A member of the RNA family "PrrF RNA" from Pseudomonas putida, 145 nucleotides long. Its family is annotated with sRNA-mediated gene silencing in the Gene Ontology. The family's consensus secondary structure is taken from published work. The family has 18 seed sequences and 107 matches in Rfam 15.1. Rfam describes the family as follows. PrrF RNA is a small RNA involved in iron homeostasis and is found exclusively in Pseudomonas species. It is annotated as a small RNA.

[Rfam]
RNA sequence: UUGACUGCCAAAUGAUAACGAUUAUUAUUGCACUCAGCUGAUCGCGAGAUCUGCUGGAUAACCUGGAGCUUAGGUCGCUCUCAGAUUAUCUCCUCAUCAGGCUAAUCACGGUUUUUGACCCGGCUUUUUGCCGGGUCUUUUUUUU
Numbered sequence: 001u002u003g004a005c006u007g008c009c010a011a012a013u014g015a016u017a018a019c020g021a022u023u024a025u026u027a028u029u030g031c032a033c034u035c036a037g038c039u040g041a042u043c044g045c046g047a048g049a050u051c052u053g054c055u056g057g058a059u060a061a062c063c064u065g066g067a068g069c070u071u072a073g074g075u076c077g078c079u080c081u082c083a084g085a086u087u088a089u090c091u092c093c094u095c096a097u098c099a100g101g102c103u104a105a106u107c108a109c110g111g112u113u114u115u116u117g118a119c120c121c122g123g124c125u126u127u128u129u130g131c132c133g134g135g136u137c138u139u140u141u142u143u144u145u
Base pairs, nucleotide, nucleotide: 035056036055037054038053040051041050042049043048063084064083065082066080067079068078069077092101093100094099117137118136119135120134121133122132123131124130